[Rfam]
A member of the RNA family "Prion pseudoknot", 40 nucleotides long. For this family Rfam cites "Pseudoknots in prion protein mRNAs confirmed by comparative sequence analysis and pattern searching" (Barrette et al., Nucleic Acids Res, 2001). This family represents a predicted pseudoknot structure found in prion protein mRNA. It has been suggested that the family has a possible effect in prion protein translation. It is annotated as a cis-regulatory element. The family has 148 seed sequences and 421 matches in Rfam 15.1. Rfam links the family to the GO term translation.
RNA sequence: CCAGGGUGGUGGCUGGGGGCAACCCCAUGGUGGCGGCUGG
Number, nucleotide and partner (000 for none) at each position: 001c030002c029003a028004g000005g026006g025007u000008g000009g000010u000011g000012g000013c000014u000015g000016g000017g000018g000019g000020c000021a000022a000023c000024c000025c006026c005027a000028u003029g002030g001031u000032g000033g000034c000035g000036g000037c000038u000039g000040g000